[Rfam]
RNA sequence: AACUUUUUUGAUUUUGAUUGUUGCUCAGAAAGCCGUGAUUUCAAAAGGCUUUCGGGCAGUAAUCAAUACCAUAAGAGUG
Numbered sequence: 001a002a003c004u005u006u007u008u009u010g011a012u013u014u015u016g017a018u019u020g021u022u023g024c025u026c027a028g029a030a031a032g033c034c035g036u037g038a039u040u041u042c043a044a045a046a047g048g049c050u051u052u053c054g055g056g057c058a059g060u061a062a063u064c065a066a067u068a069c070c071a072u073a074a075g076a077g078u079g
Base pairs, nucleotide, nucleotide: 002078003077004076005075006074007073012068014066015065016064017063018062020060021059022058023057024056025055026054028053029052030051031050032049033048034047
Dot-bracket structure: .((((((....(.(((((.(((((((.(((((((............)))))))))))))).))))).)....)))))).
mir-315 microRNA precursor family: a 79-nucleotide sequence from Psylliodes chrysocephalus.
The match comes from Rfam's covariance-model search (71 bits).
A reference for the family is Aravin et al. (2003), "The small RNA profile during Drosophila melanogaster development", Dev Cell.
Lineage of the source: Eukaryota > Altocrustacea > Coleoptera > Chrysomelidae > Psylliodes.
Its family is annotated with RISC complex and miRNA-mediated post-transcriptional gene silencing in the Gene Ontology.